Shown here is a 71-nucleotide RNA sequence from Anaerocolumna cellulosilytica, a member of the family "Fluoride riboswitch aptamer (crcB RNA motif)". A reference for the family is Zhao et al. (2017), "An excited state underlies gene regulation of a transcriptional riboswitch", Nat Chem Biol. NCBI's taxonomy places the organism under Bacteria, Bacillati, Bacillota, Lachnospiraceae, Anaerocolumna. It scores 47 bits against the family's covariance model.
RNA sequence: GAUUAUAUAGGGAAUGAAGUUCUCCCGUGGGAAACCAAAACCGCUCUUUAGCUGAUGACUUCUGUGAUAAU
Numbered sequence: 001g002a003u004u005a006u007a008u009a010g011g012g013a014a015u016g017a018a019g020u021u022c023u024c025c026c027g028u029g030g031g032a033a034a035c036c037a038a039a040a041c042c043g044c045u046c047u048u049u050a051g052c053u054g055a056u057g058a059c060u061u062c063u064g065u066g067a068u069a070a071u
Stems, first nucleotide, its partner, number of pairs: 010026004016062006043052003